[Rfam]
RNA sequence: CAGAAAUGGGAGUUCCUUGCAGCCCAAAGCGUCCAGGGAGAACUCCCUGCUGUUUUGGACUGAAGGGAGCUCCUACUUCUU
Numbered sequence: 001c002a003g004a005a006a007u008g009g010g011a012g013u014u015c016c017u018u019g020c021a022g023c024c025c026a027a028a029g030c031g032u033c034c035a036g037g038g039a040g041a042a043c044u045c046c047c048u049g050c051u052g053u054u055u056u057g058g059a060c061u062g063a064a065g066g067g068a069g070c071u072c073c074u075a076c077u078u079c080u081u
Stems, first nucleotide, its partner, number of pairs: 007075012021061002024058005
This 81-nucleotide sequence from Abrus precatorius belongs to the Rfam family "MIR319 microRNA precursor family". The source organism's lineage runs through Eukaryota, Viridiplantae, Spermatophyta, Mesangiospermae and Abrus.